RNA sequence: GGAUGCAUUACUGGGCAAUUACUCCAUUGGCAGUUGGCCACUCGGCUGACCGUGAUUAACUUCACAAGUUCCAGAGUAAGCUCACUGCCAAAGGAGAUUUGCCCCGCAACUCAUCU
Numbered sequence: 001g002g003a004u005g006c007a008u009u010a011c012u013g014g015g016c017a018a019u020u021a022c023u024c025c026a027u028u029g030g031c032a033g034u035u036g037g038c039c040a041c042u043c044g045g046c047u048g049a050c051c052g053u054g055a056u057u058a059a060c061u062u063c064a065c066a067a068g069u070u071c072c073a074g075a076g077u078a079a080g081c082u083c084a085c086u087g088c089c090a091a092a093g094g095a096g097a098u099u100u101g102c103c104c105c106g107c108a109a110c111u112c113a114u115c116u
Base pairs, nucleotide, nucleotide: 005112008109009108011106013104014103015102016101017100018099022096023095024094025093028090029089030088031087032086033085034084036082037081038080
mir-399 microRNA precursor family: a 116-nucleotide RNA from Vitis vinifera. Rfam 15.1 lists 2,396 matches to the family in 221 species. From the family's description: mir-399 was identified in both Arabidopsis thaliana and Oryza sativa computationally and was later experimentally verified. mir-399 is thought to target mRNAs coding for a phosphatase transporter. The mature sequence is excised from the 3' arm of the hairpin. Gene Ontology terms of the family: RISC complex and miRNA-mediated post-transcriptional gene silencing.